[Rfam]
RNA sequence: ACCAGUCCAAAAGCCACGAGGCUCACACCGUACAAGAUAUCCCUUCGUCGGGAUAUCUUCACUUGUGAGCGGGUUAAGGUCUGAGUAUUCCAAUCUCCCUCGAUGGACUCUAGAGGAGUCUGGCUGUAAUACGCCAAACGGCAUACCAGAAAAACGGCGCGCCCCCUCCAACUCUAAGAUCCCGCGUGGGGGAGAGUGCGGAUGGGGCGCGCCUUGAAAUAUGCUGUGGAGAUUGGGCGCGCGACGCGCUUUUGGUCGUGGAGAUGCACUCCGUGCGUGUCCCAGAACGUACGUCGCGCGUCCUUUAGUGCACUUCGUGGCUCGUGGUCCUCGGACCGCGUAACUCGAUUCAGACUACUCUUGGAGUGGU
Numbered sequence: 001a002c003c004a005g006u007c008c009a010a011a012a013g014c015c016a017c018g019a020g021g022c023u024c025a026c027a028c029c030g031u032a033c034a035a036g037a038u039a040u041c042c043c044u045u046c047g048u049c050g051g052g053a054u055a056u057c058u059u060c061a062c063u064u065g066u067g068a069g070c071g072g073g074u075u076a077a078g079g080u081c082u083g084a085g086u087a088u089u090c091c092a093a094u095c096u097c098c099c100u101c102g103a104u105g106g107a108c109u110c111u112a113g114a115g116g117a118g119u120c121u122g123g124c125u126g127u128a129a130u131a132c133g134c135c136a137a138a139c140g141g142c143a144u145a146c147c148a149g150a151a152a153a154a155c156g157g158c159g160c161g162c163c164c165c166c167u168c169c170a171a172c173u174c175u176a177a178g179a180u181c182c183c184g185c186g187u188g189g190g191g192g193a194g195a196g197u198g199c200g201g202a203u204g205g206g207g208c209g210c211g212c213c214u215u216g217a218a219a220u221a222u223g224c225u226g227u228g229g230a231g232a233u234u235g236g237g238c239g240c241g242c243g244a245c246g247c248g249c250u251u252u253u254g255g256u257c258g259u260g261g262a263g264a265u266g267c268a269c270u271c272c273g274u275g276c277g278u279g280u281c282c283c284a285g286a287a288c289g290u291a292c293g294u295c296g297c298g299c300g301u302c303c304u305u306u307a308g309u310g311c312a313c314u315u316c317g318u319g320g321c322u323c324g325u326g327g328u329c330c331u332c333g334g335a336c337c338g339c340g341u342a343a344c345u346c347g348a349u350u351c352a353g354a355c356u357a358c359u360c361u362u363g364g365a366g367u368g369g370u
Stems, first nucleotide, its partner, number of pairs: 001370004008363003013321007021070005035058009081353005088231004106120005121136004138227007157212008323340006

Annotation
Nuclear RNase P: a 370-nucleotide RNA sequence from Lyophyllum shimeji. Gene Ontology terms of the family: tRNA processing, ribonuclease P activity and ribonuclease P complex. A reference for the family is Frank and Pace (1998), "Ribonuclease P: unity and diversity in a tRNA processing ribozyme", Annu Rev Biochem. Clan: RNaseP clan. Ribonuclease P (RNase P) is a ubiquitous endoribonuclease, found in archaea, bacteria and eukarya as well as chloroplasts and mitochondria. Its best characterised activity is the generation of mature 5'-ends of tRNAs by cleaving the 5'-leader elements of precursor-tRNAs. Cellular RNase Ps are ribonucleoproteins. RNA from bacterial RNase Ps retains its catalytic activity in the absence of the protein subunit, i.e. it is a ribozyme. Isolated eukaryotic and archaeal RNase P RNA has not been shown to retain its catalytic function, but is still essential for the catalytic activity of the holoenzyme. Although the archaeal and eukaryotic holoenzyme s have a much greater protein content than the bacterial ones, the RNA cores from all the three lineages are homologous -- helices corresponding to P1, P2, P3, P4, and P10/11 are common to all cellular RNase P RNAs. Yet, there is considerable sequence variation, particularly among the eukaryotic RNAs. The source organism's lineage runs through Eukaryota, Fungi, Dikarya, Lyophyllaceae and Lyophyllum.